[Rfam]
RNA sequence: UUGGGUGAAAUCAAUGUAGGAUCUACACUUUGGAAAUAGAACUCACAUAAAGUGGUGAGAUAUACAUUAAUUUUAUCCAA
Numbered sequence: 001u002u003g004g005g006u007g008a009a010a011u012c013a014a015u016g017u018a019g020g021a022u023c024u025a026c027a028c029u030u031u032g033g034a035a036a037u038a039g040a041a042c043u044c045a046c047a048u049a050a051a052g053u054g055g056u057g058a059g060a061u062a063u064a065c066a067u068u069a070a071u072u073u074u075a076u077c078c079a080a
Stems, first nucleotide, its partner, number of pairs: 001080011013068006024057002026054007
A member of the RNA family "MIR5269 microRNA precursor family" from Medicago truncatula, 80 nucleotides long. The match comes from Rfam's covariance-model search (82 bits). The family's consensus secondary structure was predicted with RNAalifold. Rfam links the family to the GO terms RISC complex and miRNA-mediated post-transcriptional gene silencing.